[Rfam]
MIR1520 microRNA precursor family: a 114-nucleotide RNA from Glycine max. The family's consensus secondary structure was predicted with RNAalifold. Clan: MIR1520 microRNA precursor clan. Rfam links the family to the GO terms RISC complex and miRNA-mediated post-transcriptional gene silencing. Taxonomically the source falls in Glycine subgen. Soja (Eukaryota, Viridiplantae, Streptophyta, Mesangiospermae).

RNA sequence: AAGUGAUGUGAUGUUGAUUAUCACCUAUCACCUUUUUAUUGGAUGAUGACGGUUAAUCAUGACAUGUGAUAAUCAUCAUCCAAUACAAAACGUGACACGUGACAGUCAAUAUCA
Numbered sequence: 001a002a003g004u005g006a007u008g009u010g011a012u013g014u015u016g017a018u019u020a021u022c023a024c025c026u027a028u029c030a031c032c033u034u035u036u037u038a039u040u041g042g043a044u045g046a047u048g049a050c051g052g053u054u055a056a057u058c059a060u061g062a063c064a065u066g067u068g069a070u071a072a073u074c075a076u077c078a079u080c081c082a083a084u085a086c087a088a089a090a091c092g093u094g095a096c097a098c099g100u101g102a103c104a105g106u107c108a109a110u111a112u113c114a
Base pairs, nucleotide, nucleotide: 021102022101023100026097029094030093031092033090034089035088036087038084039083040082